[Rfam]
RNA: Burkholderia RNA 7 (anti-hemB)
RNA sequence: UCCCUGCUUUUCCUCCCUGAGCAGGUGCCUUGACGUCAUGACAGCGCAAGGCUUGCGGCCCCGGGCGAUGCCCGGGGCUUUCUUUU
Number, nucleotide and partner (000 for none) at each position: 001u000002c000003c025004c024005u023006g022007c021008u020009u000010u000011u000012c000013c000014u000015c000016c000017c000018u000019g000020a008021g007022c006023a005024g004025g003026u000027g052028c051029c050030u049031u048032g047033a000034c000035g000036u000037c000038a000039u000040g000041a000042c000043a000044g000045c000046g000047c032048a031049a030050g029051g028052c027053u000054u000055g000056c000057g000058g078059c077060c076061c075062c074063g073064g072065g071066c000067g000068a000069u000070g000071c065072c064073c063074g062075g061076g060077g059078c058079u000080u000081u000082c000083u000084u000085u000086u000